[Rfam]
Nucleotides: 216
Base pairs, nucleotide, nucleotide: 014059015058016057017056018055019054060127061126062125063124065122066121068119069118070117071116072114073113074112145210146209147208148207149206150205151204152203153202154201156200157199158198160178161177162176163175164174165173
Number, partner (000 for none) and nucleotide at each position: 001000a002000c003000g004000c005000g006000c007000g008000a009000a010000a011000g012000g013000a014059g015058g016057u017056g018055g019054u020000c021000c022000a023000a024000g025000a026000g027000a028000u029000g030000g031000u032000u033000g034000a035000u036000c037000u038000u039000a040000g041000g042000a043000c044000u045000c046000g047000c048000g049000a050000g051000g052000u053000g054019g055018c056017u057016g058015u059014c060127c061126g062125c063124u064000a065122g066121u067000c068119g069118c070117c071116g072114u073113a074112c075000c076000g077000c078000c079000u080000c081000g082000g083000c084000g085000c086000c087000g088000c089000c090000g091000c092000u093000c094000c095000g096000g097000c098000g099000g100000c101000g102000g103000c104000a105000a106000c107000c108000g109000g110000u111000c112074g113073u114072a115000a116071c117070g118069g119068u120000g121066a122065c123000c124063g125062g126061c127060g128000a129000g130000a131000a132000c133000c134000a135000g136000g137000c138000a139000g140000u141000u142000a143000c144000c145210c146209g147208g148207u149206c150205c151204c152203c153202g154201g155000a156200g157199c158198c159000g160178a161177u162176g163175g164174a165173c166000c167000c168000g169000u170000c171000c172000u173165g174164u175163c176162c177161a178160u179000c180000c181000c182000c183000c184000g185000c186000c187000c188000a189000a190000c191000g192000c193000g194000g195000g196000a197000a198158g199157g200156c201154c202153c203152g204151g205150g206149g207148a208147c209146c210145g211000c212000a213000c214000a215000u216000g
This 216-nucleotide RNA sequence from Actinomadura rubrisoli belongs to the Rfam family "Actinobacteria sRNA Ms_IGR-5". The family's RNA type in Rfam is small RNA. A search with the family's covariance model found it, with a score of 86 bits. The base pairs follow the family's consensus structure. NCBI's taxonomy places the organism under Bacteria, Bacillati, Actinomycetes, Thermomonosporaceae, Actinomadura.